[Rfam]
RNA sequence: ACCUGUCACCUAUGUAAGUCGCUCUGGACAAGAGCGUCUGCUAAAUAACAGUAA
Numbered sequence: 001a002c003c004u005g006u007c008a009c010c011u012a013u014g015u016a017a018g019u020c021g022c023u024c025u026g027g028a029c030a031a032g033a034g035c036g037u038c039u040g041c042u043a044a045a046u047a048a049c050a051g052u053a054a
Base pairs, nucleotide, nucleotide: 013043014041015040016039020036021035022034023033024032025031